[Rfam]
RNA sequence: CAGAUUAUUACCGCCAUUCCGAUCAUGGCGGGUUAGCGAUCAUCGACCGGAAACCCGCCCUAGAGGCGGGUUUC
Numbered sequence: 001c002a003g004a005u006u007a008u009u010a011c012c013g014c015c016a017u018u019c020c021g022a023u024c025a026u027g028g029c030g031g032g033u034u035a036g037c038g039a040u041c042a043u044c045g046a047c048c049g050g051a052a053a054c055c056c057g058c059c060c061u062a063g064a065g066g067c068g069g070g071u072u073u074c
Stems, first nucleotide, its partner, number of pairs: 011031007051073009
The family of this 74-nucleotide sequence from Pseudomonas sp. FeS53a is "Pseudomonas sRNA P9". Rfam's curators write: This small RNA (sRNA) was computationally identified in the genome of the opportunistic pathogen Pseudomonas aeruginosa and its expression verified by northern blot analysis. P9 appears to be conserved in several Pseudomonas species in addition to Bordetella spp. In both Pseudomonas and Bordetella spp P9 appears to be located upstream of a predicted threonine dehydratase gene. P9 has a predicted Rho independent terminator at the 3' end but the function of P9 is unknown. The match comes from Rfam's covariance-model search (79 bits). Rfam classes the family as a non-coding RNA gene.